[Rfam]
RNA: MIR2912 microRNA precursor family
RNA sequence: UCUAGAACUCGAUAUAUGGGCUGAAUACUAAACAGUGUCUAGGCUGUAGGACAGAUUCAGACUUCUCUGUUGUUGCUAUAAUUUGGAUUUGAAAACGGCCUUUUUAAACUUGGACUCCAUAUGAAAGUUGUAGGCCUAUGUCUUACCAAAUCUGUC
Number, nucleotide and partner (000 for none) at each position: 001u000002c000003u154004a153005g152006a151007a000008c000009u145010c000011g144012a143013u000014a141015u140016a139017u138018g137019g136020g135021c133022u132023g131024a000025a129026u000027a128028c127029u126030a000031a000032a000033c000034a000035g122036u121037g120038u000039c000040u000041a000042g117043g116044c000045u114046g000047u000048a111049g110050g109051a000052c000053a000054g105055a104056u000057u000058c000059a000060g099061a000062c098063u097064u000065c000066u000067c000068u092069g000070u000071u000072g088073u087074u086075g000076c000077u000078a000079u000080a000081a000082u000083u000084u000085g000086g074087a073088u072089u000090u000091g000092a068093a000094a000095a000096c000097g063098g062099c060100c000101u000102u000103u000104u055105u054106a000107a000108a000109c050110u049111u048112g000113g000114a045115c000116u043117c042118c000119a000120u037121a036122u035123g000124a000125a000126a029127g028128u027129u025130g000131u023132a022133g021134g000135c020136c019137u018138a017139u016140g015141u014142c000143u012144u011145a009146c000147c000148a000149a000150a000151u006152c005153u004154g003155u000156c000